About this RNA
Shown here is a 96-nucleotide sequence from Bowdeniella nasicola, a member of the family "mraW RNA". Rfam 15.1 lists 851 matches to the family in 821 species. A search with the family's covariance model found it, with a score of 55 bits. Lineage of the source: Bacteria > Bacillati > Actinomycetota > Actinomycetaceae > Bowdeniella.

[Rfam]
RNA sequence: GUUUUAGCCAGGGACGUGGACUUUCUCCGAUGCUCCGACGAACUUCCCCAUCGCCGGAUCAUGCGGAGAAGGUCCUCAUUCCUGGACAGCACAUGA
Number, nucleotide and partner (000 for none) at each position: 001g000002u000003u000004u000005u000006a000007g000008c000009c000010a083011g082012g081013g080014a079015c000016g077017u000018g075019g074020a000021c072022u071023u070024u069025c068026u067027c066028c065029g064030a000031u061032g060033c000034u058035c057036c056037g055038a000039c053040g052041a051042a000043c000044u000045u000046c000047c000048c000049c000050a000051u041052c040053g039054c000055c037056g036057g035058a034059u000060c032061a031062u000063g000064c029065g028066g027067a026068g025069a024070a023071g022072g021073u000074c019075c018076u000077c016078a000079u014080u013081c012082c011083u010084g000085g000086a000087c000088a000089g000090c000091a000092c000093a000094u000095g000096a000
Rfam classes the family as a cis-regulatory element.